[Rfam]
RNA: L31-Actinobacteria ribosomal protein leader
Organism: Actinokineospora bangkokensis
RNA sequence: CAGGCACCGGUUCACCCCAGCACGACCCGGGGACCCGGCGGCC
Numbered sequence: 001c002a003g004g005c006a007c008c009g010g011u012u013c014a015c016c017c018c019a020g021c022a023c024g025a026c027c028c029g030g031g032g033a034c035c036c037g038g039c040g041g042c043c
Stems, first nucleotide, its partner, number of pairs: 003043003007038004015032004020027001